[Rfam]
RNA sequence: AAAAAUAUUUGGCAAACCUGUUGAAAAGCAGGGACGCAAUGCUAUAGGGGCUAAUCAAAUUUGUAUGCCAGCCAGCUGCCCAC
Numbered sequence: 001a002a003a004a005a006u007a008u009u010u011g012g013c014a015a016a017c018c019u020g021u022u023g024a025a026a027a028g029c030a031g032g033g034a035c036g037c038a039a040u041g042c043u044a045u046a047g048g049g050g051c052u053a054a055u056c057a058a059a060u061u062u063g064u065a066u067g068c069c070a071g072c073c074a075g076c077u078g079c080c081c082a083c
Base pairs, nucleotide, nucleotide: 012037013036017032018031019030020029021028022027041076042075043074047073048072049069050068051067056063057062
Background: c-di-GMP-I riboswitch aptamer: an 83-nucleotide sequence from Oscillibacter hominis. Its family is annotated with cyclic-di-GMP binding in the Gene Ontology. The family's consensus secondary structure is taken from published work. The source organism's lineage runs through Bacteria, Bacillati, Clostridia, Oscillospiraceae and Oscillibacter.